[Rfam]
RNA sequence: UACAAUGGGGAAGAUCUGCAUUCGACGCGACACACAUACGGGGUGGCUUUUAUUAGCUACUCAUUUAAUGCGUUAGGGAAACUCUCCAAGCAAUAUCCCUUUAUUGGGUGGCACUUGUAAAGAGUGCCGGAUGGGCCAUUUUUAUGGCUUGCUGUUCUAUCUUCCUUUCUGGCAAAGCUGAGUCUGGGGAGCUCUGGGGCAGUCACAUUUUCUUGCUAUAACAACAGUCAUUGCAGGUGCCCUGGGCAAUCUUUUUUGUCUUUGGGAUAACUCAAUGGAGACUACUCUCCUUCAUUGU
Numbered sequence: 001u002a003c004a005a006u007g008g009g010g011a012a013g014a015u016c017u018g019c020a021u022u023c024g025a026c027g028c029g030a031c032a033c034a035c036a037u038a039c040g041g042g043g044u045g046g047c048u049u050u051u052a053u054u055a056g057c058u059a060c061u062c063a064u065u066u067a068a069u070g071c072g073u074u075a076g077g078g079a080a081a082c083u084c085u086c087c088a089a090g091c092a093a094u095a096u097c098c099c100u101u102u103a104u105u106g107g108g109u110g111g112c113a114c115u116u117g118u119a120a121a122g123a124g125u126g127c128c129g130g131a132u133g134g135g136c137c138a139u140u141u142u143u144a145u146g147g148c149u150u151g152c153u154g155u156u157c158u159a160u161c162u163u164c165c166u167u168u169c170u171g172g173c174a175a176a177g178c179u180g181a182g183u184c185u186g187g188g189g190a191g192c193u194c195u196g197g198g199g200c201a202g203u204c205a206c207a208u209u210u211u212c213u214u215g216c217u218a219u220a221a222c223a224a225c226a227g228u229c230a231u232u233g234c235a236g237g238u239g240c241c242c243u244g245g246g247c248a249a250u251c252u253u254u255u256u257u258g259u260c261u262u263u264g265g266g267a268u269a270a271c272u273c274a275a276u277g278g279a280g281a282c283u284a285c286u287c288u289c290c291u292u293c294a295u296u297g298u
Base pairs, nucleotide, nucleotide: 002298003297004296005295006294007293008292009290010289011288014238015237016236017235018234019233022076024074025073026072027071028070043060044059045058046057047056048055080283084280085279086278087277117127118126119125134149135148136147137146138145139144151209153207158205161202162201164199165198166197167196171193172192173191241266242265243264244263245262246261
Description
RNase MRP: a 298-nucleotide sequence from Phycomyces blakesleeanus. RNase MRP is an enzymatically active ribonucleoprotein with two distinct roles in eukaryotes. In mitochondria it plays a direct role in the initiation of mitochondrial DNA replication. In the nucleus it is involved in precursor rRNA processing, where it cleaves the internal transcribed spacer 1 between 18S and 5.8S rRNAs. NCBI's taxonomy places the organism under Eukaryota, Mucoromycota, Mucorales, Phycomyces, Phycomyces blakesleeanus. Gene Ontology terms of the family: ribonuclease MRP activity, ribonuclease MRP complex and rRNA processing.